[Rfam]
Notes
Rfam assigns this 74-nucleotide RNA from Massilia violaceinigra to the family "SAH (S-adenosyl-L-homocysteine) riboswitch aptamer".
RNA sequence: UGUUCCGAGGAGCGUUGCGACGAAAUUCCCAUUUCGCCAGGCUCGGAAAUCCACCGCAACCGCGCUCACGUUAC
Numbered sequence: 001u002g003u004u005c006c007g008a009g010g011a012g013c014g015u016u017g018c019g020a021c022g023a024a025a026u027u028c029c030c031a032u033u034u035c036g037c038c039a040g041g042c043u044c045g046g047a048a049a050u051c052c053a054c055c056g057c058a059a060c061c062g063c064g065c066u067c068a069c070g071u072u073a074c
Base pairs, nucleotide, nucleotide: 003048004047005046006045007044008043021036022035023034024033025032026031
The family has 52 seed sequences and 1,354 matches in Rfam 15.1.
The family's consensus secondary structure is taken from published work.